[Rfam]
Nucleotides: 089
Stems, first nucleotide, its partner, number of pairs: 003087004
Number, partner (000 for none) and nucleotide at each position: 001000g002000a003087u004086c005085u006084u007000g008000a009000u010000g011000a012000u013000g014000a015000c016000c017000a018000a019000a020000a021000c022000u023000u024000u025000c026000g027000u028000u029000c030000u031000a032000c033000c034000g035000a036000a037000a038000a039000g040000g041000a042000c043000c044000u045000u046000a047000a048000u049000g050000g051000c052000c053000u054000u055000u056000g057000u058000g059000g060000a061000u062000a063000a064000a065000a066000c067000u068000u069000g070000g071000a072000g073000a074000c075000c076000u077000g078000a079000a080000c081000u082000g083000a084006a085005a086004g087003a088000u089000c